[Rfam]
RNA sequence: GGGCAUAUGGCGGAGUCUGGUCUAACGCGUUGUGCUUAAGACACAAUGUUCCUCGAACUCGUGGGUUCGAAUCCCACUGUGCCCA
Numbered sequence: 001g002g003g004c005a006u007a008u009g010g011c012g013g014a015g016u017c018u019g020g021u022c023u024a025a026c027g028c029g030u031u032g033u034g035c036u037u038a039a040g041a042c043a044c045a046a047u048g049u050u051c052c053u054c055g056a057a058c059u060c061g062u063g064g065g066u067u068c069g070a071a072u073c074c075c076a077c078u079g080u081g082c083c084c085a
Base pairs, nucleotide, nucleotide: 001084002083003082004081005080006079007078010028011027012026030046031045032044033043034042061077062076063075064074065073
The record is an 85-nucleotide RNA sequence from Mortierella alpina, which matches "tRNA" in Rfam. The organism belongs to Mortierella, within Eukaryota. It is annotated as a transfer RNA. The base pairs follow the family's consensus structure, which is taken from published work. Rfam links the family to the GO term triplet codon-amino acid adaptor activity.